[Rfam]
RNA: Small nucleolar RNA SNORA25
RNA sequence: AGGUCAUUUCAAAGAGAGCUUAGAGGCCCCAAACCAGGACUCUUAACACUGUGUCCUAAGAUGGAAGUUAUUCAUAGUAUGUAAUAGACACUCAAUAGUCCUAUGUUUUCCUGAGAUGAAAGAUUA
Dot-bracket structure: .((.(((......(((((.((...((.......)).)).)))))......))).))............(..((..((.(....((((..(((....))).))))....).))..))..).......
Numbered sequence: 001a002g003g004u005c006a007u008u009u010c011a012a013a014g015a016g017a018g019c020u021u022a023g024a025g026g027c028c029c030c031a032a033a034c035c036a037g038g039a040c041u042c043u044u045a046a047c048a049c050u051g052u053g054u055c056c057u058a059a060g061a062u063g064g065a066a067g068u069u070a071u072u073c074a075u076a077g078u079a080u081g082u083a084a085u086a087g088a089c090a091c092u093c094a095a096u097a098g099u100c101c102u103a104u105g106u107u108u109u110c111c112u113g114a115g116a117u118g119a120a121a122g123a124u125u126a
Stems, first nucleotide, its partner, number of pairs: 002056002005053003014044005020038002025035002069119001072116002076112002079109001084104004090099003